[Rfam]
RNA sequence: UUUAUGGGAUACACCAAGUUCAGUUGUGUAAAAAUUUUAAUUAAAAAAAUAAAUUCCAUACAUGGCAUCACUGGGCUUUGUUUAUCUCAUAAU
Numbered sequence: 001u002u003u004a005u006g007g008g009a010u011a012c013a014c015c016a017a018g019u020u021c022a023g024u025u026g027u028g029u030a031a032a033a034a035u036u037u038u039a040a041u042u043a044a045a046a047a048a049a050u051a052a053a054u055u056c057c058a059u060a061c062a063u064g065g066c067a068u069c070a071c072u073g074g075g076c077u078u079u080g081u082u083u084a085u086c087u088c089a090u091a092a093u
Stems, first nucleotide, its partner, number of pairs: 002092010013081002017077008027067003
Shown here is a 93-nucleotide RNA from Lucilia cuprina, a member of the family "mir-318 microRNA precursor family". It scores 76 bits against the family's covariance model. A reference for the family is Clark et al. (2007), "Evolution of genes and genomes on the Drosophila phylogeny", Nature. Pairs were carried over by alignment from the consensus structure, which was predicted with RNAalifold. Clan: mir-3 clan.